[Rfam]
RNA sequence: UCACAUAUAGUGCCGGGGCAACUAAAACUCUGAGUUCUCUCUGCUUUAGAGUUUUUUUACCCCGGCUCUGUAUGGA
Numbered sequence: 001u002c003a004c005a006u007a008u009a010g011u012g013c014c015g016g017g018g019c020a021a022c023u024a025a026a027a028c029u030c031u032g033a034g035u036u037c038u039c040u041c042u043g044c045u046u047u048a049g050a051g052u053u054u055u056u057u058u059a060c061c062c063c064g065g066c067u068c069u070g071u072a073u074g075g076a
Base pairs, nucleotide, nucleotide: 001076002075004074005073006072007071009069010068012066013065014064015063016062017061020058021057024055025054026053027052028051029050030049031048032047033046034044035043
Dot-bracket structure: ((.((((.((.((((((..((..((((((((((((.......)).)))))))))).))..)))))).)).))))))

The family of this 76-nucleotide RNA sequence from Branchiostoma floridae is "mir-4872 microRNA precursor family".
It scores 80 bits against the family's covariance model.